[Rfam]
RNA sequence: GGCCGGCCCAAGUGCAGUGGUAUUUAAACUAAUUGAUCACAACCAGUUACAGUUUUGUUUUUUCCCCACUCCCAUGCUUCACUUGACUAGGCUUAA
Numbered sequence: 001g002g003c004c005g006g007c008c009c010a011a012g013u014g015c016a017g018u019g020g021u022a023u024u025u026a027a028a029c030u031a032a033u034u035g036a037u038c039a040c041a042a043c044c045a046g047u048u049a050c051a052g053u054u055u056u057g058u059u060u061u062u063u064c065c066c067c068a069c070u071c072c073c074a075u076g077c078u079u080c081a082c083u084u085g086a087c088u089a090g091g092c093u094u095a096a
Base pairs, nucleotide, nucleotide: 001092003090005088006087008085010084011083014080016075018074019073020072027059028058029057031055032054
RNA: Y RNA